[Rfam]
A member of the RNA family "mir-290 microRNA precursor family" from Dipodomys ordii, 73 nucleotides long.
Its Rfam clan is "mir-290 clan".
The base pairs follow the family's consensus structure, which was predicted with RNAalifold.
The match comes from Rfam's covariance-model search (53 bits).
The source organism's lineage runs through Eukaryota, Metazoa, Euteleostomi, Rodentia and Dipodomys.

RNA sequence: GUGACACUCAAAAAGUAGCAGCACUUUUUUUCAUCACGAGGGAGAAAAAGUGCCCCCACAGUUUGAGUGCCAC
Numbered sequence: 001g002u003g004a005c006a007c008u009c010a011a012a013a014a015g016u017a018g019c020a021g022c023a024c025u026u027u028u029u030u031u032c033a034u035c036a037c038g039a040g041g042g043a044g045a046a047a048a049a050g051u052g053c054c055c056c057c058a059c060a061g062u063u064u065g066a067g068u069g070c071c072a073c
Base pairs, nucleotide, nucleotide: 005069006068007067008066009065010064011063012062015059016058018056021053022052023051024050025049027047028046029045